[Rfam]
RNA sequence: CGGGGCUGGGGAAGGGCUGCUGGGUGGUGGGGCCGACGGGCCCGGCCUCGUACCAGCCAGCCUCACCCGCGCCCGAGAUCAACUCCCAGGCGGGCUCCGUGCUGGGGUUCAUCCUGUGCAGUAACAGGUGUGAGCAUCCCUGCAGCGUUUUGAUGGUCAUGUAUGAUACUGCAUACAACA
Numbered sequence: 001c002g003g004g005g006c007u008g009g010g011g012a013a014g015g016g017c018u019g020c021u022g023g024g025u026g027g028u029g030g031g032g033c034c035g036a037c038g039g040g041c042c043c044g045g046c047c048u049c050g051u052a053c054c055a056g057c058c059a060g061c062c063u064c065a066c067c068c069g070c071g072c073c074c075g076a077g078a079u080c081a082a083c084u085c086c087c088a089g090g091c092g093g094g095c096u097c098c099g100u101g102c103u104g105g106g107g108u109u110c111a112u113c114c115u116g117u118g119c120a121g122u123a124a125c126a127g128g129u130g131u132g133a134g135c136a137u138c139c140c141u142g143c144a145g146c147g148u149u150u151u152g153a154u155g156g157u158c159a160u161g162u163a164u165g166a167u168a169c170u171g172c173a174u175a176c177a178a179c180a
Base pairs, nucleotide, nucleotide: 003074004073005072006071008068009067010066015062016061017060018059019057020056021055022054024053025052026047027046028045030043032041033040034039086107087106089103090102091101092100115175116174117173118172119171120170121169122168123167125165126164131159132158133157135155136154137153138152142149
This 180-nucleotide RNA sequence from Aptenodytes forsteri belongs to the Rfam family "Small Cajal body specific RNA 16". Taxonomically the source falls in Aptenodytes (Eukaryota, Dipnotetrapodomorpha, Tetrapoda, Aves). Rfam links the family to the GO terms RNA processing and nucleolus. The base pairs follow the family's consensus structure, which was predicted with RNAfold. On this family, see Darzacq et al., EMBO J 2002: "Cajal body-specific small nuclear RNAs: a novel class of 2'-O-methylation and pseudouridylation guide RNAs". About the family: scaRNAs are a specific class of small nuclear RNAs which localise to the Cajal bodies and guide the modification of RNA polymerase II transcribed spliceosomal RNAs U1, U2, U4, U5 and U12. ACA47 belongs to the H/ACA box class of guide RNAs as it has the predicted hairpin-hinge-hairpin-tail structure, the conserved H/ACA-box motifs and is found associated with GAR1. ACA47 is predicted to guide the pseudouridylation of residue U5 of the U1 spliceosomal snRNA. By type it is a small Cajal body RNA.